[Rfam]
RNA sequence: CAUAUUCUUCAGGGAAGGUGCGAUUCCUUACCGGCGGUAAAGUCCGCGAACUCGAGAGAGCCGAACUUGUGAAAUUCAAGUACCGACAGUAUAGUCUGGAUGAAAGAAGAAAUAG
Dot-bracket structure: ....((((((.....(((.......))).[[((((((....[[))))...((......))....(((((.......)))))]])).(((....]]))).......))))))....
Rfam assigns this 115-nucleotide sequence from Peptostreptococcaceae bacterium AS15 to the family "FMN riboswitch aptamer (RFN element)". Pairs were carried over by alignment from the consensus structure, which is taken from published work. Rfam describes the family as follows. The RFN element is a highly conserved domain that is found frequently in the 5'-untranslated regions of prokaryotic mRNAs that encode for flavin mononucleotide (FMN) biosynthesis and transport proteins.